[Rfam]
RNA sequence: UUGCACGUGGAACUGUCUGCUCCUCAUUCCUCGGGGGCGGGACUAUUCCCACGCCACGCUAUACUGAAAGGGUGCUCAGGGCUGCCGACCUUGACGUAGAGGCUGAGUGGUAGUAUAUCUCUCCUACAUAA
Number, nucleotide and partner (000 for none) at each position: 001u000002u000003g059004c058005a000006c000007g055008u000009g000010g000011a000012a000013c000014u000015g000016u041017c040018u039019g038020c037021u036022c035023c034024u000025c000026a000027u000028u000029c000030c000031u000032c000033g000034g023035g022036g021037g020038c019039g018040g017041g016042a000043c000044u000045a000046u000047u000048c000049c000050c000051a000052c000053g000054c000055c007056a000057c000058g004059c003060u000061a000062u000063a000064c000065u000066g000067a000068a000069a000070g123071g122072g121073u000074g000075c000076u000077c000078a000079g000080g000081g111082c110083u000084g000085c107086c105087g104088a000089c102090c101091u100092u099093g000094a000095c000096g000097u000098a000099g092100a091101g090102g089103c000104u087105g086106a000107g085108u000109g000110g082111u081112a000113g000114u000115a000116u000117a000118u000119c000120u000121c072122u071123c070124c000125u000126a000127c000128a000129u000130a000131a000